[Rfam]
RNA sequence: CUGAGCUUUGAGCCUCUUUACAAUGCUGCCUUGUAGACCCAGAAUCAAGCAGCAUUGUACAGGGCUAUGAAAGCACAG
Numbered sequence: 001c002u003g004a005g006c007u008u009u010g011a012g013c014c015u016c017u018u019u020a021c022a023a024u025g026c027u028g029c030c031u032u033g034u035a036g037a038c039c040c041a042g043a044a045u046c047a048a049g050c051a052g053c054a055u056u057g058u059a060c061a062g063g064g065c066u067a068u069g070a071a072a073g074c075a076c077a078g
Stems, first nucleotide, its partner, number of pairs: 014064004019059010030049004
A member of the RNA family "mir-103/107 microRNA precursor family" from Cyprinus carpio, 78 nucleotides long. The literature on the family includes a 2002 paper in Genes Dev by Mourelatos et al., "miRNPs: a novel class of ribonucleoproteins containing numerous microRNAs". Pairs were carried over by alignment from the consensus structure, which was predicted with RNAalifold. This family consists of the mammalian microRNA (miRNA) precursors mir-103 and mir107. Animal miRNAs are transcribed as ~70nt precursors and subsequently processed by the Dicer enzyme to give a ~22nt product. The sequence is in the family's curated seed alignment.